RNA: mir-544 microRNA precursor family
RNA sequence: AUUACCUGGGGGAUCUUAUUAAUAUGCAGAUUCUGACUCAGUAAGUCUAGGGUAGGGCCCAAGAUUCUGCAUUUCUAGCAAGUUCCCAGGUAAUGCCAA
Numbered sequence: 001a002u003u004a005c006c007u008g009g010g011g012g013a014u015c016u017u018a019u020u021a022a023u024a025u026g027c028a029g030a031u032u033c034u035g036a037c038u039c040a041g042u043a044a045g046u047c048u049a050g051g052g053u054a055g056g057g058c059c060c061a062a063g064a065u066u067c068u069g070c071a072u073u074u075c076u077a078g079c080a081a082g083u084u085c086c087c088a089g090g091u092a093a094u095g096c097c098a099a
Stems, first nucleotide, its partner, number of pairs: 003092003010086003015082003019078003022074001024072001026070005032064003